About this RNA:
Shown here is a 110-nucleotide RNA sequence from Dasypus novemcinctus, a member of the family "Small nucleolar RNA SNORD23". Rfam classes the family as a C/D-box small nucleolar RNA.
RNA sequence: UGUCCGGUGAUGACAUCUAUCUUUGCUCUUCGUGCCUCUCAGGGCCAUGGGCGACACUCUGGCUAGCUCUGGGCUGGGCCGGUUGGGCCAGCGCCUGGGGGCUGAGGGCA
Numbered sequence: 001u002g003u004c005c006g007g008u009g010a011u012g013a014c015a016u017c018u019a020u021c022u023u024u025g026c027u028c029u030u031c032g033u034g035c036c037u038c039u040c041a042g043g044g045c046c047a048u049g050g051g052c053g054a055c056a057c058u059c060u061g062g063c064u065a066g067c068u069c070u071g072g073g074c075u076g077g078g079c080c081g082g083u084u085g086g087g088c089c090a091g092c093g094c095c096u097g098g099g100g101g102c103u104g105a106g107g108g109c110a
Stems, first nucleotide, its partner, number of pairs: 001110005
Dot-bracket structure: (((((....................................................................................................)))))
Lineage of the source: Eukaryota > Eumetazoa > Bilateria > Dipnotetrapodomorpha > Dasypus.
The pairing is the family consensus, mapped onto this sequence.
Rfam's curators put it in the seed alignment.